The record is a 133-nucleotide RNA, which matches "TPP riboswitch aptamer (THI element)" in Rfam. The family's consensus secondary structure is taken from published work.
Nucleotides: 133
Base pairs, nucleotide, nucleotide: 006121007120008119009118011082012081013080014079016076017069018068019067020066021065088113089112090111091110094107095106096105097104
Number, partner (000 for none) and nucleotide at each position: 001000a002000a003000a004000a005000u006121g007120c008119a009118c010000c011082g012081g013080g014079g015000g016076u017069g018068u019067c020066g021065g022000u023000a024000u025000c026000u027000g028000c029000u030000c031000c032000a033000g034000u035000c036000c037000a038000u039000g040000c041000c042000a043000c044000c045000u046000g047000g048000c049000u050000a051000g052000g053000a054000u055000a056000u057000g058000g059000g060000c061000a062000g063000g064000u065021c066020u067019g068018g069017c070000u071000g072000a073000g074000a075000c076016a077000g078000u079014c080013c081012c082011u083000u084000c085000g086000a087000a088113c089112c090111u091110g092000a093000a094107c095106a096105g097104g098000a099000u100000a101000a102000u103000a104097c105096c106095u107094g108000c109000g110091u111090a112089g113088g114000g115000a116000g117000u118009g119008u120007g121006c122000u123000u124000u125000u126000u127000u128000g129000u130000u131000u132000c133000c